[Rfam]
RNA: Guanidine-II riboswitch aptamer (mini-ykkC)
RNA sequence: UGCUCAGGACGACCUGAGAAAUGUCAUUUUGUUGGGGACGACCCU
Numbered sequence: 001u002g003c004u005c006a007g008g009a010c011g012a013c014c015u016g017a018g019a020a021a022u023g024u025c026a027u028u029u030u031g032u033u034g035g036g037g038a039c040g041a042c043c044c045u
Base pairs, nucleotide, nucleotide: 001020003018004017005016006015007014008013034045035044036043037042